[Rfam]
RNA sequence: GGUUCGGGAGCCACCCUUCGGGACGGGUGGCACGAAUGGAACCCCAUAGUCUGCUUCGCAAGCGGUGCGCACCCGUGGCCCGACGGGUGGUGCG
Numbered sequence: 001g002g003u004u005c006g007g008g009a010g011c012c013a014c015c016c017u018u019c020g021g022g023a024c025g026g027g028u029g030g031c032a033c034g035a036a037u038g039g040a041a042c043c044c045c046a047u048a049g050u051c052u053g054c055u056u057c058g059c060a061a062g063c064g065g066u067g068c069g070c071a072c073c074c075g076u077g078g079c080c081c082g083a084c085g086g087g088u089g090g091u092g093c094g
Stems, first nucleotide, its partner, number of pairs: 001043005010031007066094005071088005
A member of the RNA family "Rhodo-rpoB RNA" from Tabrizicola piscis, 94 nucleotides long. By type it is a cis-regulatory element. The source organism's lineage runs through Bacteria, Pseudomonadati, Pseudomonadota, Alphaproteobacteria and Tabrizicola.